[Rfam]
The record is a 132-nucleotide sequence from Tripterygium wilfordii, which matches "Small nucleolar RNA snoR111" in Rfam. The family's RNA type in Rfam is H/ACA-box small nucleolar RNA. A search with the family's covariance model found it, with a score of 100 bits. Taxonomically the source falls in Tripterygium (Eukaryota, Viridiplantae, Gunneridae, Pentapetalae). The literature on the family includes a 2002 paper in Curr Biol by Marker et al., "Experimental RNomics: identification of 140 candidates for small non-messenger RNAs in the plant Arabidopsis thaliana". The family's consensus secondary structure was predicted with WAR.
RNA sequence: UUGAGUAACGGGAGAUUAUUUUUGUGUCUCUUUGUUUCGAUGAACGGAUGAGGUAUAGCAAAUCAAAUGGCCGAGAUAUCGUUUCAGUCGUCAUCUAUUUGGAUUGACGAUUUGAUUGUUGCUCGUCCACAU
Numbered sequence: 001u002u003g004a005g006u007a008a009c010g011g012g013a014g015a016u017u018a019u020u021u022u023u024g025u026g027u028c029u030c031u032u033u034g035u036u037u038c039g040a041u042g043a044a045c046g047g048a049u050g051a052g053g054u055a056u057a058g059c060a061a062a063u064c065a066a067a068u069g070g071c072c073g074a075g076a077u078a079u080c081g082u083u084u085c086a087g088u089c090g091u092c093a094u095c096u097a098u099u100u101g102g103a104u105u106g107a108c109g110a111u112u113u114g115a116u117u118g119u120u121g122c123u124c125g126u127c128c129a130c131a132u
Stems, first nucleotide, its partner, number of pairs: 005038001007036004012030005069128002072125004078116004087111007096102001